A member of the RNA family "Pseudomonas sRNA P9" from Verticiella sediminum, 86 nucleotides long.
The literature on the family includes a 2006 paper in Nucleic Acids Res by Livny et al., "Identification of 17 Pseudomonas aeruginosa sRNAs and prediction of sRNA-encoding genes in 10 diverse pathogens using the bioinformatic tool sRNAPredict2".
[Rfam]
RNA sequence: AUCAUUAUUCGCACCAUUGCGGCAAUGGUGGGAUAGCGCGCGUUCGGAUCCAGUCUUCUCGAAACCCGCCCCACGAGGCGGGUUUU
Number, nucleotide and partner (000 for none) at each position: 001a000002u000003c000004a000005u000006u000007a000008u000009u000010c000011g000012c030013a029014c028015c027016a026017u025018u000019g000020c000021g000022g000023c000024a000025a017026u016027g015028g014029u013030g012031g000032g000033a000034u000035a000036g000037c000038g000039c000040g000041c000042g000043u000044u000045c000046g000047g000048a000049u000050c000051c000052a000053g000054u000055c000056u000057u000058c000059u000060c000061g000062a085063a084064a083065c082066c081067c080068g079069c078070c077071c000072c000073a000074c000075g000076a000077g070078g069079c068080g067081g066082g065083u064084u063085u062086u000